The family of this 101-nucleotide RNA sequence from Aneurinibacillus migulanus is "Purine riboswitch aptamer".

RNA sequence: AAUAUUUCAAAAGUAUAUACUCGUAUAAUUCCAACAAUAGGGGUUGGAACUAUCUAGUGGAAACCGUAAAUUUCCUAGCUACGAGAAAAGGUAUCCCUGUG
Numbered sequence: 001a002a003u004a005u006u007u008c009a010a011a012a013g014u015a016u017a018u019a020c021u022c023g024u025a026u027a028a029u030u031c032c033a034a035c036a037a038u039a040g041g042g043g044u045u046g047g048a049a050c051u052a053u054c055u056a057g058u059g060g061a062a063a064c065c066g067u068a069a070a071u072u073u074c075c076u077a078g079c080u081a082c083g084a085g086a087a088a089a090g091g092u093a094u095c096c097c098u099g100u101g
Base pairs, nucleotide, nucleotide: 018087020085021084022083023082024081025080029049030048031047032046033045034044035043059075060074061073062072063071

Pairs were carried over by alignment from the consensus structure, which is taken from published work. It scores 65 bits against the family's covariance model. Lineage of the source: Bacteria > Bacillota > Caryophanales > Paenibacillaceae > Aneurinibacillus.